[Rfam]
Nucleotides: 064
Base pairs, nucleotide, nucleotide: 002063003062004061005060014051015050016049018047019046020045021044022043023042029039030038031037
Number, partner (000 for none) and nucleotide at each position: 001000a002063c003062c004061a005060g006000a007000u008000g009000a010000u011000g012000a013000u014051g015050g016049c017000c018047u019046g020045g021044a022043c023042a024000g025000a026000a027000a028000c029039c030038c031037a032000u033000c034000c035000u036000g037031u038030g039029g040000g041000c042023u043022g044021u045020c046019c047018a048000u049016g050015u051014c052000u053000g054000a055000a056000u057000u058000c059000c060005c061004u062003g063002g064000c